[Rfam]
RNA sequence: UGCCUUCUGUCGUGUAUCCCCGAUUAAUGCAACCUUAGGUGCUUGA
Numbered sequence: 001u002g003c004c005u006u007c008u009g010u011c012g013u014g015u016a017u018c019c020c021c022g023a024u025u026a027a028u029g030c031a032a033c034c035u036u037a038g039g040u041g042c043u044u045g046a
Stems, first nucleotide, its partner, number of pairs: 009024004031043001033041001